[Rfam]
RNA sequence: AGCCGCCCAUCGCUUGGGGAAACGGGGGAACCGCAUCGGACGUAUCCGUAAGGUACGUCUAGGGGUGAAUUUUCGGAUACGCCGUCAUUGUACGUACGGCGAACGCCGAGAUAGGGCCACUCUCCGGUCCGAAUCCGACAGCUAACCUCGUAAGCGUUACGAGAGAGGUAAC
Number, nucleotide and partner (000 for none) at each position: 001a000002g000003c000004c156005g155006c154007c000008c000009a000010u000011c000012g000013c019014u000015u000016g000017g000018g000019g013020a000021a000022a151023c150024g149025g148026g147027g146028g000029a000030a000031c000032c062033g000034c000035a000036u000037c000038g000039g000040a000041c000042g000043u000044a000045u000046c000047c000048g000049u000050a000051a000052g000053g000054u000055a000056c000057g000058u000059c000060u000061a000062g032063g136064g135065g134066u000067g000068a000069a000070u000071u111072u110073u109074c108075g107076g106077a000078u000079a000080c000081g000082c000083c000084g000085u000086c000087a000088u000089u000090g000091u000092a000093c000094g000095u000096a000097c000098g000099g000100c000101g000102a000103a000104c000105g000106c076107c075108g074109a073110g072111a071112u000113a000114g130115g129116g128117c127118c000119a000120c000121u000122c000123u000124c000125c000126g000127g117128u116129c115130c114131g000132a000133a000134u065135c064136c063137g000138a000139c000140a000141g000142c000143u000144a000145a000146c027147c026148u025149c024150g023151u022152a000153a000154g006155c005156g004157u000158u000159a000160c000161g000162a000163g000164a000165g000166a000167g000168g000169u000170a000171a000172c000
A member of the RNA family "c-di-AMP riboswitch aptamer (ydaO/yuaA leader)" from Paenibacillus antri, 172 nucleotides long. Rfam links the family to the GO terms cyclic-di-AMP binding and regulation of gene expression.